Nucleotides: 070
Stems, first nucleotide, its partner, number of pairs: 008019001010017002038055007
Number, partner (000 for none) and nucleotide at each position: 001000u002000g003000u004000u005000g006000c007000u008019g009000c010017u011016u012000u013000c014000u015000u016011g017010g018000a019008c020000g021000u022000u023000u024000c025000c026000u027000c028000c029000c030000u031000a032000a033000a034000c035000u036000u037000g038055g039054c040053g041052g042051u043050g044049c045000u046000u047000c048000g049044g050043c051042a052041c053040c054039g055038c056000c057000u058000u059000u060000u061000u062000u063000u064000g065000c066000u067000u068000u069000g070000a
The record is a 70-nucleotide sequence from Acidisoma silvae, which matches "Makes More Granules Regulator RNA (mmgR)" in Rfam. Taxonomically the source falls in Acidisoma (Bacteria, Pseudomonadota, Alphaproteobacteria, Acetobacterales). Its Rfam clan is "suhB sRNA clan". A search with the family's covariance model found it, with a score of 54 bits. The family has 87 seed sequences and 1,791 matches in Rfam 15.1. About the family: SuhB later renamed mmgR (makes more granules regulator) was a putative non-coding RNA found multiple times in the Agrobacterium tumefaciens genome and related alpha-proteobacteria. Other non-coding RNAs uncovered in the same analysis include: speF, ybhL, metA, and serC.Several studies inSinorhizobium meliloti showed that suhB element is indeed a non-coding RNA:firstly it was detected on Northern blot and called Sm8RNA, secondly in an RNAseq study referred to as SmelC689.The mutant phenotype's (strain lacking the small RNA) cytoplasm contains higher content of polyhydroxybutyrate (PBH)storage granules than wild type strain.